[Rfam]
RNA: Small nucleolar RNA Z221/R21b
Organism: Papaver somniferum
RNA sequence: AGGCUAUGAUGAUAUAUAAGUCAUGCACCACUCAGAGUGAUUUUUUAAAUCAGUUGCUGAUAAACGACUCACCAUAACUAUUCUGAGCCU
Numbered sequence: 001a002g003g004c005u006a007u008g009a010u011g012a013u014a015u016a017u018a019a020g021u022c023a024u025g026c027a028c029c030a031c032u033c034a035g036a037g038u039g040a041u042u043u044u045u046u047a048a049a050u051c052a053g054u055u056g057c058u059g060a061u062a063a064a065c066g067a068c069u070c071a072c073c074a075u076a077a078c079u080a081u082u083c084u085g086a087g088c089c090u
Stems, first nucleotide, its partner, number of pairs: 001090004